[Rfam]
RNA sequence: AGUAUCGUGAGGUAACUGCUAAAGGAAGUUAAUGACAAAAGAAGGUUGGAACGAACAGAAAUCAGAUAGUAGGCCACUGUGGCGAGGUAACCUAGCAACAAAUAGAAUAACCUGCCUUCAAAUGGGGCGAGCACAGUGGUAAAUCUGGUCUGACCUUCGGAAACUUUUAUAU
Numbered sequence: 001a002g003u004a005u006c007g008u009g010a011g012g013u014a015a016c017u018g019c020u021a022a023a024g025g026a027a028g029u030u031a032a033u034g035a036c037a038a039a040a041g042a043a044g045g046u047u048g049g050a051a052c053g054a055a056c057a058g059a060a061a062u063c064a065g066a067u068a069g070u071a072g073g074c075c076a077c078u079g080u081g082g083c084g085a086g087g088u089a090a091c092c093u094a095g096c097a098a099c100a101a102a103u104a105g106a107a108u109a110a111c112c113u114g115c116c117u118u119c120a121a122a123u124g125g126g127g128c129g130a131g132c133a134c135a136g137u138g139g140u141a142a143a144u145c146u147g148g149u150c151u152g153a154c155c156u157u158c159g160g161a162a163a164c165u166u167u168u169a170u171a172u
Stems, first nucleotide, its partner, number of pairs: 003014004028172002032168001035165001041158010062148006073140003077136005085113004092105003
RNA: Group II catalytic intron D1-D4-3